[Rfam]
RNA sequence: UCGUACUAGGCGGGGAGUUAGCGGUGCCCUGUACUCGCAAUCCGCUAUAGCGAGGCUGAAUUCCCGCACGAGGUUUUGCAUAUAUUUGUGUACGGUGUUUAUAUGCGGCGUUGAGGAAUGGAUCCUGUGCAAUAUAAAGCUAUGAACCCUGUCAGGUCCUGACGGAAGCAGCAGUAAGUAGUCAUUUAUGUGUGCCGCAGGAAGGUCUGUUUUGAGCUGUAGAUAGAAGUGCCUGUAAAUAUGGCGAAUCGAAUGCGGGUGUACGG
Numbered sequence: 001u002c003g004u005a006c007u008a009g010g011c012g013g014g015g016a017g018u019u020a021g022c023g024g025u026g027c028c029c030u031g032u033a034c035u036c037g038c039a040a041u042c043c044g045c046u047a048u049a050g051c052g053a054g055g056c057u058g059a060a061u062u063c064c065c066g067c068a069c070g071a072g073g074u075u076u077u078g079c080a081u082a083u084a085u086u087u088g089u090g091u092a093c094g095g096u097g098u099u100u101a102u103a104u105g106c107g108g109c110g111u112u113g114a115g116g117a118a119u120g121g122a123u124c125c126u127g128u129g130c131a132a133u134a135u136a137a138a139g140c141u142a143u144g145a146a147c148c149c150u151g152u153c154a155g156g157u158c159c160u161g162a163c164g165g166a167a168g169c170a171g172c173a174g175u176a177a178g179u180a181g182u183c184a185u186u187u188a189u190g191u192g193u194g195c196c197g198c199a200g201g202a203a204g205g206u207c208u209g210u211u212u213u214g215a216g217c218u219g220u221a222g223a224u225a226g227a228a229g230u231g232c233c234u235g236u237a238a239a240u241a242u243g244g245c246g247a248a249u250c251g252a253a254u255g256c257g258g259g260u261g262u263a264c265g266g
Base pairs, nucleotide, nucleotide: 001266002265003264004263005262006261009057010056011055012030013029014028015027017025018024019023034054035053036052037051038050063259064258065257066256067255068254072250073249074248075247076246081243082242083241084240085239086238087237088236089235093231094230098227099226100225101224102223107218108217109216115213116212117211118210119209120208121207122206123205124201125200126199127198128197129196130192131191133190134189135188136187137186139182140181141180142179143178149174150173151172152171157166158165159164
Bacterial large signal recognition particle RNA: a 266-nucleotide sequence from Guopingia tenuis. Pairs were carried over by alignment from the consensus structure, which is taken from published work. About the family: The signal recognition particle (SRP) is a universally conserved ribonucleoprotein involved in the co-translational targeting of proteins to membranes. It is annotated as a non-coding RNA gene. The match comes from Rfam's covariance-model search (195 bits).